[Rfam]
RNA sequence: GGGCGUGUAGCUCAGUGGUAGAGCGGUGCCCUUACAAGGCAUAGGUCGGGGGUUCGAAACCCUCCGCGCCCA
Dot-bracket structure: (((((((..((((.......)))).(((((.......))))).....(((((.......)))))))))))).
Numbered sequence: 001g002g003g004c005g006u007g008u009a010g011c012u013c014a015g016u017g018g019u020a021g022a023g024c025g026g027u028g029c030c031c032u033u034a035c036a037a038g039g040c041a042u043a044g045g046u047c048g049g050g051g052g053u054u055c056g057a058a059a060c061c062c063u064c065c066g067c068g069c070c071c072a
Stems, first nucleotide, its partner, number of pairs: 001071007010024004026042005048064005
The record is a 72-nucleotide RNA from Actinacidiphila oryziradicis, which matches "tRNA" in Rfam. Taxonomically the source falls in Actinacidiphila (Bacteria, Bacillati, Actinomycetota, Streptomycetaceae). A search with the family's covariance model found it, with a score of 73 bits.